[Rfam]
This 107-nucleotide RNA from Oncorhynchus kisutch belongs to the Rfam family "Small nucleolar RNA SNORD46". Rfam describes the family as follows. U40 is a C/D box small nucleolar RNA, also known as snoZ153 in plants. The human sequence has also been annotated in the sequence databases as U46. U40 is encoded in intron 2 of the ribosomal protein S8 gene in human, and is hypothesised to guide methylation of 2'-O-ribose residues on 28S ribosomal RNA. This family represents vertebrate U40. Its Rfam clan is "SNORD46 clan". Its family is annotated with nucleolus and RNA processing in the Gene Ontology. A search with the family's covariance model found it, with a score of 41 bits. A reference for the family is Chen et al. (2003), "The high diversity of snoRNAs in plants: identification and comparative study of 120 snoRNA genes from Oryza sativa", Nucleic Acids Res. Pairs were carried over by alignment from the consensus structure. Taxonomically the source falls in Oncorhynchus (Eukaryota, Bilateria, Actinopteri, Teleostei).

RNA sequence: AGUGUGGAUGAUUAGACAUUGACCAUAGGUAGGUCUGUUUUGACCGUUUUGGUUCAAAGUUUAGGGCCUACCAAUGAUCCGGACUGUCAUAGUUACACUGACACACU
Numbered sequence: 001a002g003u004g005u006g007g008a009u010g011a012u013u014a015g016a017c018a019u020u021g022a023c024c025a026u027a028g029g030u031a032g033g034u035c036u037g038u039u040u041u042g043a044c045c046g047u048u049u050u051g052g053u054u055c056a057a058a059g060u061u062u063a064g065g066g067c068c069u070a071c072c073a074a075u076g077a078u079c080c081g082g083a084c085u086g087u088c089a090u091a092g093u094u095a096c097a098c099u100g101a102c103a104c105a106c107u
Stems, first nucleotide, its partner, number of pairs: 001107006
Dot-bracket structure: ((((((...............................................................................................))))))